[Rfam]
This 123-nucleotide RNA sequence from Pantoea vagans belongs to the Rfam family "Enterobacteria greA leader".
RNA sequence: GUCAAUACUACGUCCCGAGGCGGUGCAAAGUAAACGAUGACCCACAGGGAACUCUGGGGUAAAAUACGUAUCAAAAUGCAAAACCGAACCUGACCCGGAAAGCUUUCCGGGUCAGGCUUCUUU
Numbered sequence: 001g002u003c004a005a006u007a008c009u010a011c012g013u014c015c016c017g018a019g020g021c022g023g024u025g026c027a028a029a030g031u032a033a034a035c036g037a038u039g040a041c042c043c044a045c046a047g048g049g050a051a052c053u054c055u056g057g058g059g060u061a062a063a064a065u066a067c068g069u070a071u072c073a074a075a076a077u078g079c080a081a082a083a084c085c086g087a088a089c090c091u092g093a094c095c096c097g098g099a100a101a102g103c104u105u106u107c108c109g110g111g112u113c114a115g116g117c118u119u120c121u122u123u
Base pairs, nucleotide, nucleotide: 001041002040003039005038006037011036012035016030042049043048058072059071060070061069089116090115091114092113093112094111095110096109097108098107099106

Annotation:
The match comes from Rfam's covariance-model search (103 bits).